[Rfam]
TPP riboswitch aptamer (THI element): a 93-nucleotide RNA sequence from Chiayiivirga flava.
NCBI's taxonomy places the organism under Bacteria, Pseudomonadati, Lysobacterales, Lysobacteraceae, Chiayiivirga.
Its family is annotated with thiamine pyrophosphate binding in the Gene Ontology.
The family's consensus secondary structure is taken from published work.

RNA sequence: CGCAAGAAGCGGGGGUGCCGCGUUGCCGGCUGAGAGAGUCCCUUCGAACCUGAUCCGGUUGGGACCGGCGUAGGGAGCUUCGUGUCGCGGGUG
Dot-bracket structure: .....(((((((((.(((((......))))......)..)))).....((((..((((......))))..))))..)))))............
Numbered sequence: 001c002g003c004a005a006g007a008a009g010c011g012g013g014g015g016u017g018c019c020g021c022g023u024u025g026c027c028g029g030c031u032g033a034g035a036g037a038g039u040c041c042c043u044u045c046g047a048a049c050c051u052g053a054u055c056c057g058g059u060u061g062g063g064a065c066c067g068g069c070g071u072a073g074g075g076a077g078c079u080u081c082g083u084g085u086c087g088c089g090g091g092u093g
Stems, first nucleotide, its partner, number of pairs: 006081005011043004016037001017030004049074004055068004